[Rfam]
RNA sequence: GGUUGGAGUUUCAAAACUUUCAAGAAAAAGCUUCUUUGGGUCAAGAAGC
Numbered sequence: 001g002g003u004u005g006g007a008g009u010u011u012c013a014a015a016a017c018u019u020u021c022a023a024g025a026a027a028a029a030g031c032u033u034c035u036u037u038g039g040g041u042c043a044a045g046a047a048g049c
Base pairs, nucleotide, nucleotide: 003023004022005021006019007018008017009016010015030049031048032047033046034045035044036043